A member of the RNA family "Bacterial RNase P class B" from Spiroplasma sabaudiense, 340 nucleotides long. The family is grouped with related families in Rfam's "RNaseP clan". It scores 252 bits against the family's covariance model. It is annotated as a ribozyme. Lineage of the source: Bacteria > Mycoplasmatota > Mollicutes > Spiroplasma > Spiroplasma sabaudiense.

RNA sequence: UAUUUGAAUCAAUCGCUGCAAUUGAAAAAUUAUUGUAGAGGAAACUCCACGCUUGCACUUUCUGCGAUGAAAGUAGUGAUUGUGCUAGGGAAAAAAAUAACCCUGGACACCUUUUGGGUGAUGACUAGUAUUUUUCCUAAAAGUUUACUUAUGGAAAAACUAAUAAAGUGCCACAGAGACGAGUAUUGGGAAACCAGGAAAUGGAACGGGUAAACUCCACAAGCAAGAAACUCAAAUUUAGGUAGAGGAAUUAAACAAAGGGAAUUGAACCAAUGUUUGAACCGUAAUGGUAGAUAGAUGAUUGAUACCUAGAAAUAGGAACAAAACGUGGGUUAUGAUA
Numbered sequence: 001u002a003u004u005u006g007a008a009u010c011a012a013u014c015g016c017u018g019c020a021a022u023u024g025a026a027a028a029a030u031u032a033u034u035g036u037a038g039a040g041g042a043a044a045c046u047c048c049a050c051g052c053u054u055g056c057a058c059u060u061u062c063u064g065c066g067a068u069g070a071a072a073g074u075a076g077u078g079a080u081u082g083u084g085c086u087a088g089g090g091a092a093a094a095a096a097a098u099a100a101c102c103c104u105g106g107a108c109a110c111c112u113u114u115u116g117g118g119u120g121a122u123g124a125c126u127a128g129u130a131u132u133u134u135u136c137c138u139a140a141a142a143g144u145u146u147a148c149u150u151a152u153g154g155a156a157a158a159a160c161u162a163a164u165a166a167a168g169u170g171c172c173a174c175a176g177a178g179a180c181g182a183g184u185a186u187u188g189g190g191a192a193a194c195c196a197g198g199a200a201a202u203g204g205a206a207c208g209g210g211u212a213a214a215c216u217c218c219a220c221a222a223g224c225a226a227g228a229a230a231c232u233c234a235a236a237u238u239u240a241g242g243u244a245g246a247g248g249a250a251u252u253a254a255a256c257a258a259a260g261g262g263a264a265u266u267g268a269a270c271c272a273a274u275g276u277u278u279g280a281a282c283c284g285u286a287a288u289g290g291u292a293g294a295u296a297g298a299u300g301a302u303u304g305a306u307a308c309c310u311a312g313a314a315a316u317a318g319g320a321a322c323a324a325a326a327c328g329u330g331g332g333u334u335a336u337g338a339u340a
Stems, first nucleotide, its partner, number of pairs: 004340001007336001008306007016038006043334003047331005052227005057074006080222005085106006107122001108120005123217002126162004134156004141150003168215002170211003186197004231247003251280007281291004308319004